[Rfam]
RNA sequence: UGGACCAUGCAUGAAAAAUAGGAGUAUAUCAUGAACCAAGGAUUAUGAUUAAUCCAAUUUUGUACCUCUGAGGUCCAA
Numbered sequence: 001u002g003g004a005c006c007a008u009g010c011a012u013g014a015a016a017a018a019u020a021g022g023a024g025u026a027u028a029u030c031a032u033g034a035a036c037c038a039a040g041g042a043u044u045a046u047g048a049u050u051a052a053u054c055c056a057a058u059u060u061u062g063u064a065c066c067u068c069u070g071a072g073g074u075c076c077a078a
Stems, first nucleotide, its partner, number of pairs: 002076005
This 78-nucleotide RNA sequence from Cebus imitator belongs to the Rfam family "Small nucleolar RNA SNORD113/SNORD114 family". Rfam's curators write: The imprinted human domain at 14q32 contains two clusters of tandemly repeated small nucleolar RNAs named 14q(I) and 14q(II) snoRNAs. These two clusters are named SNORD113 and SNORD114 respectively in the HGNC approved gene symbol nomenclature. Its Rfam clan is "SNORD74 clan". The family's RNA type in Rfam is C/D-box small nucleolar RNA. The organism belongs to Cebus, within Eukaryota.